[Rfam]
RNA sequence: GGGGCCAUAGGGUAGCCUGGUCUAUCCUUUGGGCUUUGGGAGCCUGAGACCCCGGUUCAAAUCCGGGUGGCCCCA
Numbered sequence: 001g002g003g004g005c006c007a008u009a010g011g012g013u014a015g016c017c018u019g020g021u022c023u024a025u026c027c028u029u030u031g032g033g034c035u036u037u038g039g040g041a042g043c044c045u046g047a048g049a050c051c052c053c054g055g056u057u058c059a060a061a062u063c064c065g066g067g068u069g070g071c072c073c074c075a
Base pairs, nucleotide, nucleotide: 001074002073003072004071005070006069007068010028011027012026030046031045032044033043034042051067052066053065054064055063
Dot-bracket structure: (((((((..(((.............))).(((((.......)))))....(((((.......)))))))))))).